This 83-nucleotide sequence from Sus scrofa belongs to the Rfam family "small Cajal body-specific RNA 18".

[Rfam]
RNA sequence: UGGUCGAUAAUUAUGUGAAAACUGUGCAGUCCGAGUUCUGGGAACCAGAUGCUGGAGUGUGUGCUGACAACAGACUGAGACCA
Numbered sequence: 001u002g003g004u005c006g007a008u009a010a011u012u013a014u015g016u017g018a019a020a021a022c023u024g025u026g027c028a029g030u031c032c033g034a035g036u037u038c039u040g041g042g043a044a045c046c047a048g049a050u051g052c053u054g055g056a057g058u059g060u061g062u063g064c065u066g067a068c069a070a071c072a073g074a075c076u077g078a079g080a081c082c083a
Base pairs, nucleotide, nucleotide: 002082003081004080005079038048039047040046041045
Pairs were carried over by alignment from the consensus structure, which was predicted with PFOLD.
Its family is annotated with nucleolus, RNA processing and Cajal body in the Gene Ontology.
Taxonomically the source falls in Sus (Eukaryota, Tetrapoda, Boreoeutheria, Suina).
scaRNAs are a specific class of small nuclear RNAs which localise to the Cajal bodies and guide the modification of RNA polymerase II transcribed spliceosomal RNAs U1, U2, U4, U5 and U12. This C/D box domain U91 (also known as U4-8) was identified by Darzacq and is predicted to guide the 2'O-ribose methylation of U4 snRNA C8.
It is annotated as a small Cajal body RNA.